[Rfam]
RNA sequence: GCCUUGAAAGCGCCGAGUUCUUAAGAAGCGGAGGACCCAGGUUUUAGGGGUGAAUUGCCGUCCGGCAAAGGGCACGACCACAGCCCGAACCCGUCAGCUAACUUCGUAGGCGUUGGGGGCUCAAGGC
Numbered sequence: 001g002c003c004u005u006g007a008a009a010g011c012g013c014c015g016a017g018u019u020c021u022u023a024a025g026a027a028g029c030g031g032a033g034g035a036c037c038c039a040g041g042u043u044u045u046a047g048g049g050g051u052g053a054a055u056u057g058c059c060g061u062c063c064g065g066c067a068a069a070g071g072g073c074a075c076g077a078c079c080a081c082a083g084c085c086c087g088a089a090c091c092c093g094u095c096a097g098c099u100a101a102c103u104u105c106g107u108a109g110g111c112g113u114u115g116g117g118g119g120c121u122c123a124a125g126g127c
Stems, first nucleotide, its partner, number of pairs: 011112004018027003028107006038047001048092003056067004070086004
Description:
The family of this 127-nucleotide sequence from Sulfobacillus acidophilus is "c-di-AMP riboswitch aptamer (ydaO/yuaA leader)". Pairs were carried over by alignment from the consensus structure. Taxonomically the source falls in Sulfobacillus acidophilus (Bacteria, Bacillota, Eubacteriales, Sulfobacillus). Rfam links the family to the GO terms regulation of gene expression and cyclic-di-AMP binding. The match comes from Rfam's covariance-model search (92 bits). This family represents a conserved RNA structure found upstream of the ydaO and yuaA genes in Bacillus subtilis and related genes in other bacteria.